[Rfam]
Background:
The record is an 81-nucleotide RNA sequence from Ananas comosus, which matches "Small nucleolar RNA snoR53Y" in Rfam. It scores 64 bits against the family's covariance model. It is annotated as a C/D-box small nucleolar RNA. For this family Rfam cites "Multiple snoRNA gene clusters from Arabidopsis" (Brown et al., RNA, 2001).
RNA sequence: GUUCCCGAUGAUGCUUAUAUAAACCAUGCUAAUUCUGACAUUAUUUGACGAUAAUUCAAGUUUGCUUUUUCUGAGGGAACA
Numbered sequence: 001g002u003u004c005c006c007g008a009u010g011a012u013g014c015u016u017a018u019a020u021a022a023a024c025c026a027u028g029c030u031a032a033u034u035c036u037g038a039c040a041u042u043a044u045u046u047g048a049c050g051a052u053a054a055u056u057c058a059a060g061u062u063u064g065c066u067u068u069u070u071c072u073g074a075g076g077g078a079a080c081a
Stems, first nucleotide, its partner, number of pairs: 001080005